[Rfam]
RNA sequence: AACAAUGAUUUCUAGGGUUCCGUAGCAUGUUGCUAGCCUGGUCCGAGAGAAAUCUCAUAGCUAUAUUGCUAUGCCACGGAAGGAUAAAAGCCUGGGAGAC
Number, nucleotide and partner (000 for none) at each position: 001a000002a000003c000004a000005a000006u000007g054008a053009u052010u051011u050012c049013u000014a000015g044016g043017g000018u000019u000020c041021c040022g038023u035024a034025g033026c032027a031028u000029g000030u000031u027032g026033c025034u024035a023036g000037c000038c022039u000040g021041g020042u000043c016044c015045g000046a000047g000048a000049g012050a011051a010052a009053u008054c007055u000056c073057a072058u071059a070060g069061c068062u000063a000064u000065a000066u000067u000068g061069c060070u059071a058072u057073g056074c000075c095076a000077c098078g000079g000080a000081a093082g092083g091084a000085u000086a000087a000088a000089a000090g000091c083092c082093u081094g000095g075096g000097a000098g077099a000100c000
The family of this 100-nucleotide RNA from Viridibacillus arenosi is "Guanidine-I riboswitch aptamer".
The source organism's lineage runs through Bacteria, Bacillota, Caryophanaceae, Viridibacillus and Viridibacillus arenosi.